RNA sequence: GGGGCUGCACUGGUUUCGACGUGGGUUCGGACACGCAGCAGGGCAUGUCGAGGUUCUGUCACCUCGUAAAACCGCAGAAAAAAACUAACUGCAAACGACGAACGUUUCGCACUCGCCGCUUAAUUGCCGGUGAGCUUUGCAACAGCAGGCCUAUGGGCUGGGCAAGGGUUCAAACGGCGCAAGCCGCGAGAGUCCAGGCUGCAAAGAUAAUUCAAUAGGCUGGUUGGGCGUCGGGUAACUUGGCGCACAACAAGAUUCAAGGUUGCUGGCGUCCUGUGUAGCGUGCCGCUGCGCGAUUCAGGAAGCGAGAUUCAAAUCAGACGGCUACACAUGUAGAACUGCGCGAAGAAGGCUUGCGGACGGGGGUUCAAAUCCCCCCAGCUCCACCA
Numbered sequence: 001g002g003g004g005c006u007g008c009a010c011u012g013g014u015u016u017c018g019a020c021g022u023g024g025g026u027u028c029g030g031a032c033a034c035g036c037a038g039c040a041g042g043g044c045a046u047g048u049c050g051a052g053g054u055u056c057u058g059u060c061a062c063c064u065c066g067u068a069a070a071a072c073c074g075c076a077g078a079a080a081a082a083a084a085c086u087a088a089c090u091g092c093a094a095a096c097g098a099c100g101a102a103c104g105u106u107u108c109g110c111a112c113u114c115g116c117c118g119c120u121u122a123a124u125u126g127c128c129g130g131u132g133a134g135c136u137u138u139g140c141a142a143c144a145g146c147a148g149g150c151c152u153a154u155g156g157g158c159u160g161g162g163c164a165a166g167g168g169u170u171c172a173a174a175c176g177g178c179g180c181a182a183g184c185c186g187c188g189a190g191a192g193u194c195c196a197g198g199c200u201g202c203a204a205a206g207a208u209a210a211u212u213c214a215a216u217a218g219g220c221u222g223g224u225u226g227g228g229c230g231u232c233g234g235g236u237a238a239c240u241u242g243g244c245g246c247a248c249a250a251c252a253a254g255a256u257u258c259a260a261g262g263u264u265g266c267u268g269g270c271g272u273c274c275u276g277u278g279u280a281g282c283g284u285g286c287c288g289c290u291g292c293g294c295g296a297u298u299c300a301g302g303a304a305g306c307g308a309g310a311u312u313c314a315a316a317u318c319a320g321a322c323g324g325c326u327a328c329a330c331a332u333g334u335a336g337a338a339c340u341g342c343g344c345g346a347a348g349a350a351g352g353c354u355u356g357c358g359g360a361c362g363g364g365g366g367u368u369c370a371a372a373u374c375c376c377c378c379c380a381g382c383u384c385c386a387c388c389a
Stems, first nucleotide, its partner, number of pairs: 001385007020358008034345003038342004044333005049066005054079006112134007135206006143160004149220006223251004228246004233267002237263001269306002272303005278297001281294003285325004291317001362378005
This 389-nucleotide RNA from Hydrogenophaga taeniospiralis belongs to the Rfam family "transfer-messenger RNA". Pairs were carried over by alignment from the consensus structure, which is taken from published work. The family's RNA type in Rfam is non-coding RNA gene. Rfam's curators write: Bacterial tmRNA, also known as 10Sa RNA or SsrA, is named for its dual tRNA and mRNA-like properties. The family is grouped with related families in Rfam's "tRNA clan".